RNA sequence: AGUUGCAAGUUUGAAGCCACAGCAGAAGUGCUUGUGGCAUGAUCUGUCAGAUUCCAAUGAAUCUGUGAGCUUUGCU
Numbered sequence: 001a002g003u004u005g006c007a008a009g010u011u012u013g014a015a016g017c018c019a020c021a022g023c024a025g026a027a028g029u030g031c032u033u034g035u036g037g038c039a040u041g042a043u044c045u046g047u048c049a050g051a052u053u054c055c056a057a058u059g060a061a062u063c064u065g066u067g068a069g070c071u072u073u074g075c076u
Base pairs, nucleotide, nucleotide: 013044016043018041021076022075023074024073025072026071028040029039030038048065049064050063051062052061053060054059

This 76-nucleotide sequence from Alligator mississippiensis belongs to the Rfam family "Mammalian CPEB3 ribozyme".
The base pairs follow the family's consensus structure, which is taken from published work.
NCBI's taxonomy places the organism under Eukaryota, Metazoa, Eumetazoa, Deuterostomia, Alligator.